[Rfam]
RNA sequence: AGUCAUCCAUCCAACAAACUCGCAGGCAGGAGCGGGGGACCCAGGUAAGUCGCCGCACCGGUCACCACCGGAGCGGCUCGGGGUGAAGCCGUACCCGUCAGGGCACGGCCGGGCACCUCCCCGCCCGAACCCGACAGCUCACCUCGCAGGCGUAAGGAGAGGGACA
Numbered sequence: 001a002g003u004c005a006u007c008c009a010u011c012c013a014a015c016a017a018a019c020u021c022g023c024a025g026g027c028a029g030g031a032g033c034g035g036g037g038g039a040c041c042c043a044g045g046u047a048a049g050u051c052g053c054c055g056c057a058c059c060g061g062u063c064a065c066c067a068c069c070g071g072a073g074c075g076g077c078u079c080g081g082g083g084u085g086a087a088g089c090c091g092u093a094c095c096c097g098u099c100a101g102g103g104c105a106c107g108g109c110c111g112g113g114c115a116c117c118u119c120c121c122c123g124c125c126c127g128a129a130c131c132c133g134a135c136a137g138c139u140c141a142c143c144u145c146g147c148a149g150g151c152g153u154a155a156g157g158a159g160a161g162g163g164a165c166a
Stems, first nucleotide, its partner, number of pairs: 003031002032147006042080001081132003089108004111126004

Description: This 166-nucleotide RNA sequence from Streptomyces coelicolor belongs to the Rfam family "c-di-AMP riboswitch aptamer (ydaO/yuaA leader)". This family represents a conserved RNA structure found upstream of the ydaO and yuaA genes in Bacillus subtilis and related genes in other bacteria.